This 282-nucleotide RNA sequence from Labeo rohita belongs to the Rfam family "Small Cajal body specific RNA 6". By type it is a small Cajal body RNA. Rfam's curators write: U88 is small Cajal body specific RNA (scaRNA). scaRNAs are a novel class of small nuclear RNAs which localise to the Cajal bodies. U88 is found associated with both fibrillarin and Gar1p and co-localises with coilin in Cajal bodies. For this family Rfam cites "Cajal body-specific small nuclear RNAs: a novel class of 2'-O-methylation and pseudouridylation guide RNAs" (Darzacq et al., EMBO J, 2002). Pairs were carried over by alignment from the consensus structure, which is taken from published work.

[Rfam]
RNA sequence: GGUCAGUGAUGAGAUGUAAAAGGUCCGAAGCCUUCGUCUCCUUCCAGUCCUUCUGUCCCUCCCAGCAGCCCCUCUUCAUUUUUCUCCAGCUUGCUCUAGUCGUGCAUUGCUGGUUUAAGGCGGCAGCUGAUAUUAUAGACACUUCUGCUAUAUAUUUUGAGUCUUUUAGAGAACAAGAAGACUUGAUAACAGCAGCGUCAAACAGAAACACAACACACAGGAGGGUUGGACUGAAGGAGAGUGUAUGACAGGCUAAUGAUCUCAAGUUUUCAAGCUGAGACC
Numbered sequence: 001g002g003u004c005a006g007u008g009a010u011g012a013g014a015u016g017u018a019a020a021a022g023g024u025c026c027g028a029a030g031c032c033u034u035c036g037u038c039u040c041c042u043u044c045c046a047g048u049c050c051u052u053c054u055g056u057c058c059c060u061c062c063c064a065g066c067a068g069c070c071c072c073u074c075u076u077c078a079u080u081u082u083u084c085u086c087c088a089g090c091u092u093g094c095u096c097u098a099g100u101c102g103u104g105c106a107u108u109g110c111u112g113g114u115u116u117a118a119g120g121c122g123g124c125a126g127c128u129g130a131u132a133u134u135a136u137a138g139a140c141a142c143u144u145c146u147g148c149u150a151u152a153u154a155u156u157u158u159g160a161g162u163c164u165u166u167u168a169g170a171g172a173a174c175a176a177g178a179a180g181a182c183u184u185g186a187u188a189a190c191a192g193c194a195g196c197g198u199c200a201a202a203c204a205g206a207a208a209c210a211c212a213a214c215a216c217a218c219a220g221g222a223g224g225g226u227u228g229g230a231c232u233g234a235a236g237g238a239g240a241g242u243g244u245a246u247g248a249c250a251g252g253c254u255a256a257u258g259a260u261c262u263c264a265a266g267u268u269u270u271c272a273a274g275c276u277g278a279g280a281c282c
Stems, first nucleotide, its partner, number of pairs: 001282004036260003041237003045233004059223004063129004068124002086113005094104001136200001138199003142195002158185010